Description: This 131-nucleotide RNA sequence from Bos taurus belongs to the Rfam family "Small nucleolar RNA SNORA63". The family's consensus secondary structure was predicted with PFOLD. For this family Rfam cites "Three small nucleolar RNAs that are involved in ribosomal RNA precursor processing" (Mishra and Eliceiri, Proc Natl Acad Sci U S A, 1997). Rfam links the family to the GO terms RNA processing and nucleolus.
[Rfam]
RNA sequence: AGGUUGGAAUAACUGUUGCAAUAUAGCUGUGAAGUGCUAUAUUGCCCUUUCCCCUGCCAAAAGCAAUUGUUUCCUACAAUCUCUGUCUAGCUCAGUUCUGUAGUAAGACAGGGACGCUUGGUCUCAAACAU
Numbered sequence: 001a002g003g004u005u006g007g008a009a010u011a012a013c014u015g016u017u018g019c020a021a022u023a024u025a026g027c028u029g030u031g032a033a034g035u036g037c038u039a040u041a042u043u044g045c046c047c048u049u050u051c052c053c054c055u056g057c058c059a060a061a062a063g064c065a066a067u068u069g070u071u072u073c074c075u076a077c078a079a080u081c082u083c084u085g086u087c088u089a090g091c092u093c094a095g096u097u098c099u100g101u102a103g104u105a106a107g108a109c110a111g112g113g114a115c116g117c118u119u120g121g122u123c124u125c126a127a128a129c130a131u
Base pairs, nucleotide, nucleotide: 003057004056006054007053018045019044020043021042022041023040024039025038026037027036082112083111084110085109087107088106089104
From the family's description: E3 belongs to the H/ACA class of snoRNAs and is involved in the processing of eukaryotic pre-rRNA and has regions of complementarity to 18S rRNA. E3 is encoded in introns in the gene for protein synthesis initiation factor 4AII.